[Rfam]
Nucleotides: 100
Base pairs, nucleotide, nucleotide: 003098004097005096006095007094008093040071041070042069043068047064050061051060052059
Number, partner (000 for none) and nucleotide at each position: 001000g002000g003098g004097g005096a006095a007094g008093u009000g010000g011000u012000g013000a014000u015000g016000a017000a018000c019000a020000a021000a022000u023000u024000u025000u026000a027000u028000u029000u030000u031000g032000g033000a034000c035000u036000a037000g038000a039000g040071u041070u042069u043068c044000a045000g046000a047064u048000u049000c050061u051060g052059c053000u054000a055000c056000u057000u058000u059052g060051u061050g062000c063000u064047a065000a066000u067000u068043g069042a070041a071040g072000a073000u074000c075000a076000a077000a078000c079000u080000c081000u082000u083000g084000g085000c086000u087000g088000u089000u090000u091000g092000a093008g094007c095006u096005u097004c098003c099000a100000g

A member of the RNA family "Small nucleolar RNA Z157/R69/R10" from Oryza meridionalis, 100 nucleotides long. The match comes from Rfam's covariance-model search (88 bits). The family is grouped with related families in Rfam's "SNORD52 clan".